[Rfam]
RNA sequence: GGAUUUGACGGCGAUGGAGCUCGCCAGGAUUAAAUUCCAAACUGCUUUCUUAGAAGCUAAUGGCUCCUACCCUAUC
Numbered sequence: 001g002g003a004u005u006u007g008a009c010g011g012c013g014a015u016g017g018a019g020c021u022c023g024c025c026a027g028g029a030u031u032a033a034a035u036u037c038c039a040a041a042c043u044g045c046u047u048u049c050u051u052a053g054a055a056g057c058u059a060a061u062g063g064c065u066c067c068u069a070c071c072c073u074a075u076c
Stems, first nucleotide, its partner, number of pairs: 010025004016067006044057004
RNA: Fluoride riboswitch aptamer (crcB RNA motif)
Organism: Natranaerobius thermophilus